[Rfam]
RNA sequence: UCUUGAGUGGGUCUUUCCAGGACUGUCUGACCUGAGAAUGGUGAUUUGAGGCUCAAUCUCAGGUUCGUCAGCCCAUGAAAUGCUUACUCACC
Numbered sequence: 001u002c003u004u005g006a007g008u009g010g011g012u013c014u015u016u017c018c019a020g021g022a023c024u025g026u027c028u029g030a031c032c033u034g035a036g037a038a039u040g041g042u043g044a045u046u047u048g049a050g051g052c053u054c055a056a057u058c059u060c061a062g063g064u065u066c067g068u069c070a071g072c073c074c075a076u077g078a079a080a081u082g083c084u085u086a087c088u089c090a091c092c
Stems, first nucleotide, its partner, number of pairs: 005089003009085004014080004020074002023071003027067001029065009039055002
Rfam assigns this 92-nucleotide sequence from Myripristis murdjan to the family "mir-1388 microRNA precursor family".
Rfam links the family to the GO terms miRNA-mediated post-transcriptional gene silencing and RISC complex.
The source organism's lineage runs through Eukaryota, Metazoa, Osteoglossocephalai, Holocentriformes and Myripristis.
A reference for the family is Warren et al. (2010), "The genome of a songbird", Nature.
It scores 83 bits against the family's covariance model.